Shown here is a 141-nucleotide RNA sequence from Rhodnius prolixus, a member of the family "U4 spliceosomal RNA".
The organism belongs to Rhodnius, within Eukaryota.
Rfam describes the family as follows. U4 small nuclear RNA (U4 snRNA) is a component of the major U2-dependent spliceosome.

[Rfam]
RNA sequence: AACCUUGCUCAGUGGCAAUAUCGUAACCAAUGAAGGCCUCCUGAGGUGCGAUUAUUGCUAGUUGGAAACUUUAAAGAUAAAUAAAUAAUCGUAUUCUUGAUUCUACGAAUUGUAACUUCAAAUUAACAGCAAAACCAUCUG
Number, nucleotide and partner (000 for none) at each position: 001a000002a000003c000004c000005u000006u000007g000008c000009u000010c000011a000012g000013u000014g000015g000016c000017a000018a000019u000020a052021u051022c050023g049024u048025a000026a047027c046028c045029a000030a000031u000032g000033a000034a042035g041036g040037c000038c000039u000040c036041c035042u034043g000044a000045g028046g027047u026048g024049c023050g022051a021052u020053u000054a000055u000056u000057g000058c000059u000060a000061g000062u000063u000064g000065g000066a000067a000068a000069c000070u000071u000072u000073a000074a000075a000076g000077a000078u000079a000080a000081a000082u000083a000084a000085a000086u000087a000088a000089u000090c000091g119092u000093a117094u000095u115096c000097u000098u112099g111100a110101u109102u108103c107104u000105a000106c000107g103108a102109a101110u100111u099112g098113u000114a000115a095116c000117u093118u000119c091120a000121a000122a000123u000124u000125a000126a000127c141128a140129g139130c000131a000132a000133a000134a000135c000136c000137a000138u000139c129140u128141g127